[Rfam]
RNA sequence: CCCGGGCAGCAGGUACACAUUUAAACCGGUGUAAAAUAUAUUUUAUUUACACCGGUUUAAAUGUGUACCUGCUGCCCGGG
Numbered sequence: 001c002c003c004g005g006g007c008a009g010c011a012g013g014u015a016c017a018c019a020u021u022u023a024a025a026c027c028g029g030u031g032u033a034a035a036a037u038a039u040a041u042u043u044u045a046u047u048u049a050c051a052c053c054g055g056u057u058u059a060a061a062u063g064u065g066u067a068c069c070u071g072c073u074g075c076c077c078g079g080g
Base pairs, nucleotide, nucleotide: 001080002079003078005076006075007074011070012069013068014067015066016065017064018063020060022059023058024057025056026055027054028053029052
RNA: mir-16 microRNA precursor family
Organism: Diabrotica balteata